[Rfam]
RNA sequence: CCCUGCAAUAAAUUGCAGGGCUAUUAUAUCGGUCGUGCCUACAGCACU
Numbered sequence: 001c002c003c004u005g006c007a008a009u010a011a012a013u014u015g016c017a018g019g020g021c022u023a024u025u026a027u028a029u030c031g032g033u034c035g036u037g038c039c040u041a042c043a044g045c046a047c048u
Base pairs, nucleotide, nucleotide: 001020002019003018004017005016006015007014008013035047036046037045038044